[Rfam]
RNA: sodF sRNA
RNA sequence: CCACUCCUGCUCGUGAUCGUCUUCUCAACCUUCACCGGGCAGGCGGAUGAAAGAACGGCCCCCGCGAGGAAAUGACUCGCAGGGGCCGUUC
Numbered sequence: 001c002c003a004c005u006c007c008u009g010c011u012c013g014u015g016a017u018c019g020u021c022u023u024c025u026c027a028a029c030c031u032u033c034a035c036c037g038g039g040c041a042g043g044c045g046g047a048u049g050a051a052a053g054a055a056c057g058g059c060c061c062c063c064g065c066g067a068g069g070a071a072a073u074g075a076c077u078c079g080c081a082g083g084g085g086c087c088g089u090u091c
Stems, first nucleotide, its partner, number of pairs: 001046002006043007013035004019029002053091010064080005